[Rfam]
RNA sequence: UAGCAGUGUAGCAUGCCCGUUUUGGUGAUAAACUCUUAUUUAUAUUUAUUAUUUAAUUGUUUGGGAUAACGGGGUGUUACACAAUU
Numbered sequence: 001u002a003g004c005a006g007u008g009u010a011g012c013a014u015g016c017c018c019g020u021u022u023u024g025g026u027g028a029u030a031a032a033c034u035c036u037u038a039u040u041u042a043u044a045u046u047u048a049u050u051a052u053u054u055a056a057u058u059g060u061u062u063g064g065g066a067u068a069a070c071g072g073g074g075u076g077u078u079a080c081a082c083a084a085u086u
Base pairs, nucleotide, nucleotide: 002086003085006082007081008080009079010078011077012076013075014074016073017072018071019070020069021068
The family of this 86-nucleotide RNA from Medicago truncatula is "MIR2617 microRNA precursor family". Rfam links the family to the GO terms RISC complex and miRNA-mediated post-transcriptional gene silencing. NCBI's taxonomy places the organism under Eukaryota, Magnoliopsida, Fabaceae, Hologalegina, Medicago. The family's consensus secondary structure was predicted with RNAalifold. A search with the family's covariance model found it, with a score of 58 bits.